TPP riboswitch aptamer (THI element): a 105-nucleotide RNA from Corynebacterium maris.
Gene Ontology term of the family: thiamine pyrophosphate binding.
Lineage of the source: Bacteria > Actinomycetota > Mycobacteriales > Corynebacterium > Corynebacterium maris.
RNA sequence: UCAGUGACAUUGGGGUGCAUCGCCCGAUUCUCGGGCGCUGCUGAGAUCACACCCAUCGAACCUGCUCUAGCUAGCACUAGCGAAGGAAUUGUCCUUGGAAGACUU
Numbered sequence: 001u002c003a004g005u006g007a008c009a010u011u012g013g014g015g016u017g018c019a020u021c022g023c024c025c026g027a028u029u030c031u032c033g034g035g036c037g038c039u040g041c042u043g044a045g046a047u048c049a050c051a052c053c054c055a056u057c058g059a060a061c062c063u064g065c066u067c068u069a070g071c072u073a074g075c076a077c078u079a080g081c082g083a084a085g086g087a088a089u090u091g092u093c094c095u096u097g098g099a100a101g102a103c104u105u
Base pairs, nucleotide, nucleotide: 006093007092008091009090011055012054013053014052016049017041018040019039021037022036023035024034025033026032061086062085063084067080068079069078070077